RNA sequence: CUACGGUGAUGAUAAAAUGAACUCUCUCUUACCGAAUCAGCCUUUGAAGAAGAAACUCUUUACAGAUUCUGAGUAGC
Numbered sequence: 001c002u003a004c005g006g007u008g009a010u011g012a013u014a015a016a017a018u019g020a021a022c023u024c025u026c027u028c029u030u031a032c033c034g035a036a037u038c039a040g041c042c043u044u045u046g047a048a049g050a051a052g053a054a055a056c057u058c059u060u061u062a063c064a065g066a067u068u069c070u071g072a073g074u075a076g077c
Stems, first nucleotide, its partner, number of pairs: 001076004
The record is a 77-nucleotide RNA sequence from Oncorhynchus tshawytscha, which matches "Small nucleolar RNA SNORD26" in Rfam. The source organism's lineage runs through Eukaryota, Deuterostomia, Craniata, Neopterygii and Oncorhynchus. Rfam classes the family as a C/D-box small nucleolar RNA.